[Rfam]
RNA sequence: UUCAAAAAUAAAGCGCCAGAACUAAUCACGAUCGAAAUCUAGAGGAUAUGUUCAAAAGGGGAUAGGGCUAAGUCGGCUAAAGGCGCCGACAUCCUAUCAGUAACAUCGACACUGUAAAAGUUCGAGACGGCGAAGCCUUCGAGCAUUAGGGUCAUUUUCUCCGGACUUUUUGAACAGCAUCUUAAAGGAUUAGUUGACGAGGUGGAGGUUAUCGAAUCUUCGGCGGAUGCCUCCCGGCUGGGACACACAGUCGAAUGAUCUUUCUUAAAACAUCGAGGUGACUCAGGUGGACAAAGGAAGGAUCAUGUGCACAU
Numbered sequence: 001u002u003c004a005a006a007a008a009u010a011a012a013g014c015g016c017c018a019g020a021a022c023u024a025a026u027c028a029c030g031a032u033c034g035a036a037a038u039c040u041a042g043a044g045g046a047u048a049u050g051u052u053c054a055a056a057a058g059g060g061g062a063u064a065g066g067g068c069u070a071a072g073u074c075g076g077c078u079a080a081a082g083g084c085g086c087c088g089a090c091a092u093c094c095u096a097u098c099a100g101u102a103a104c105a106u107c108g109a110c111a112c113u114g115u116a117a118a119a120g121u122u123c124g125a126g127a128c129g130g131c132g133a134a135g136c137c138u139u140c141g142a143g144c145a146u147u148a149g150g151g152u153c154a155u156u157u158u159c160u161c162c163g164g165a166c167u168u169u170u171u172g173a174a175c176a177g178c179a180u181c182u183u184a185a186a187g188g189a190u191u192a193g194u195u196g197a198c199g200a201g202g203u204g205g206a207g208g209u210u211a212u213c214g215a216a217u218c219u220u221c222g223g224c225g226g227a228u229g230c231c232u233c234c235c236g237g238c239u240g241g242g243a244c245a246c247a248c249a250g251u252c253g254a255a256u257g258a259u260c261u262u263u264c265u266u267a268a269a270a271c272a273u274c275g276a277g278g279u280g281a282c283u284c285a286g287g288u289g290g291a292c293a294a295a296g297g298a299a300g301g302a303u304c305a306u307g308u309g310c311a312c313a314u
Stems, first nucleotide, its partner, number of pairs: 020195008204234005212223004235253006257304007271289004275284003

About this RNA: This 314-nucleotide sequence from Bacillus sp. J14TS2 belongs to the Rfam family "glmS glucosamine-6-phosphate activated ribozyme aptamer". A search with the family's covariance model found it, with a score of 106 bits. Lineage of the source: Bacteria > Bacillati > Bacillota > Bacilli > Bacillus. It is annotated as a riboswitch.